[Rfam]
RNA sequence: CCAUGGAGGAGGAUGGACAGCCCCAUGGAGGAGGAUGG
Numbered sequence: 001c002c003a004u005g006g007a008g009g010a011g012g013a014u015g016g017a018c019a020g021c022c023c024c025a026u027g028g029a030g031g032a033g034g035a036u037g038g
Stems, first nucleotide, its partner, number of pairs: 001028006
Dot-bracket structure: ((((((................))))))..........
This 38-nucleotide RNA from Copsychus sechellarum belongs to the Rfam family "Prion pseudoknot". Rfam describes the family as follows. This family represents a predicted pseudoknot structure found in prion protein mRNA. It has been suggested that the family has a possible effect in prion protein translation. A search with the family's covariance model found it, with a score of 40 bits. On this family, see Barrette et al., Nucleic Acids Res 2001: "Pseudoknots in prion protein mRNAs confirmed by comparative sequence analysis and pattern searching".